[Rfam]
RNA sequence: UUGCCAUGAUGAGAUUCCAACUUCUGGUCCGUGUUUCUGACCAAUGAUUAUAUUGGAAGUCCUGAGCAG
Numbered sequence: 001u002u003g004c005c006a007u008g009a010u011g012a013g014a015u016u017c018c019a020a021c022u023u024c025u026g027g028u029c030c031g032u033g034u035u036u037c038u039g040a041c042c043a044a045u046g047a048u049u050a051u052a053u054u055g056g057a058a059g060u061c062c063u064g065a066g067c068a069g
Stems, first nucleotide, its partner, number of pairs: 001069004
RNA: Small nucleolar RNA SNORD18